[Rfam]
RNA sequence: GCUCAGCACGAACCGCAUGGCAGGAGCGGGGGAACCACUUUCUGCGGACGUCGCGAGACGCCCUCGGGGUGAAGCCCUCCGUGGACCGAACUCGGUCCGAGCGAAGGCCGGGCAGUACCUCCAGCCCGAACCCGACAGCUCACCUCGUAGGCGUCGAGAGGUCAA
Numbered sequence: 001g002c003u004c005a006g007c008a009c010g011a012a013c014c015g016c017a018u019g020g021c022a023g024g025a026g027c028g029g030g031g032g033a034a035c036c037a038c039u040u041u042c043u044g045c046g047g048a049c050g051u052c053g054c055g056a057g058a059c060g061c062c063c064u065c066g067g068g069g070u071g072a073a074g075c076c077c078u079c080c081g082u083g084g085a086c087c088g089a090a091c092u093c094g095g096u097c098c099g100a101g102c103g104a105a106g107g108c109c110g111g112g113c114a115g116u117a118c119c120u121c122c123a124g125c126c127c128g129a130a131c132c133c134g135a136c137a138g139c140u141c142a143c144c145u146c147g148u149a150g151g152c153g154u155c156g157a158g159a160g161g162u163c164a165a
Stems, first nucleotide, its partner, number of pairs: 001152003009023001026148006036066001067133003075107002078104001110127004

The family of this 165-nucleotide sequence from Terrabacter aerolatus is "c-di-AMP riboswitch aptamer (ydaO/yuaA leader)". Taxonomically the source falls in Terrabacter (Bacteria, Bacillati, Actinomycetota, Actinomycetes). Pairs were carried over by alignment from the consensus structure. Rfam describes the family as follows. This family represents a conserved RNA structure found upstream of the ydaO and yuaA genes in Bacillus subtilis and related genes in other bacteria. The ydaO/yuaA element is thought to act as a genetic 'off' switch for the ydaO and yuaA genes in its native state. It is believed that the element may be triggered during osmotic shock leading to activation of ydaO, a predicted amino acid transporter gene, and members of the yuaA-yubG operon which code for KtrA and KtrB K+ transporters.